[Rfam]
RNA sequence: AAAACAAAUGCCUUGGAAACUACAUUGGUCGCAGGUUCGAGUCCUGCCCCGCUCCAAGCGGGUAGCUCAGUCUGGUAGAGCGGUUAAACGUUUCCCAAAAACUCGUUGUUUGCUG
Numbered sequence: 001a002a003a004a005c006a007a008a009u010g011c012c013u014u015g016g017a018a019a020c021u022a023c024a025u026u027g028g029u030c031g032c033a034g035g036u037u038c039g040a041g042u043c044c045u046g047c048c049c050c051g052c053u054c055c056a057a058g059c060g061g062g063u064a065g066c067u068c069a070g071u072c073u074g075g076u077a078g079a080g081c082g083g084u085u086a087a088a089c090g091u092u093u094c095c096c097a098a099a100a101a102c103u104c105g106u107u108g109u110u111u112g113c114u115g
Stems, first nucleotide, its partner, number of pairs: 002111006013097001015095005024084003031047005038075001048062006065081004
RNA: Y RNA-like